[Rfam]
RNA sequence: GCCCAGAUGAGCCUCAGUGGUCUGGGGUGCAGGCUUCAAACCUGUAGCUGUCAAGGAACAGAGUGGUUCAACUUCACCUUCUGGGC
Numbered sequence: 001g002c003c004c005a006g007a008u009g010a011g012c013c014u015c016a017g018u019g020g021u022c023u024g025g026g027g028u029g030c031a032g033g034c035u036u037c038a039a040a041c042c043u044g045u046a047g048c049u050g051u052c053a054a055g056g057a058a059c060a061g062a063g064u065g066g067u068u069c070a071a072c073u074u075c076a077c078c079u080u081c082u083g084g085g086c
Stems, first nucleotide, its partner, number of pairs: 001086007009078001012027006028046006048061004063077004

The record is an 86-nucleotide sequence from Eleutherodactylus coqui, which matches "Selenocysteine transfer RNA" in Rfam. The organism belongs to Eleutherodactylus, within Eukaryota. The family is grouped with related families in Rfam's "tRNA clan". The base pairs follow the family's consensus structure, which is taken from published work.